[Rfam]
RNA: U12 minor spliceosomal RNA
Organism: Ursus americanus
RNA sequence: AUGCCUUAAACUGAUGAGUAAGGAAAAUGACGAUUCGGGAUGAUGCCCGAAUUCUCACUGCUAAUGUGAGAUGAAUUUUUGAGUGGGCAAAUGUUGCCUCUGAGAUGAGUGGACUACUUUGUGGGAUGCCUAGGAGUCGUGAUUUGCCCA
Dot-bracket structure: ...(((((..........)))))........((((((((......))))))))(((((.......))))).............(((((..(.(((((..((.((.((..(.(.........).)..)).)).))....))))).))))))
Numbered sequence: 001a002u003g004c005c006u007u008a009a010a011c012u013g014a015u016g017a018g019u020a021a022g023g024a025a026a027a028u029g030a031c032g033a034u035u036c037g038g039g040a041u042g043a044u045g046c047c048c049g050a051a052u053u054c055u056c057a058c059u060g061c062u063a064a065u066g067u068g069a070g071a072u073g074a075a076u077u078u079u080u081g082a083g084u085g086g087g088c089a090a091a092u093g094u095u096g097c098c099u100c101u102g103a104g105a106u107g108a109g110u111g112g113a114c115u116a117c118u119u120u121g122u123g124g125g126a127u128g129c130c131u132a133g134g135a136g137u138c139g140u141g142a143u144u145u146g147c148c149c150a
Stems, first nucleotide, its partner, number of pairs: 004023005032053008054070005084150005091145001093143005100134002103131002106128002110124001112122001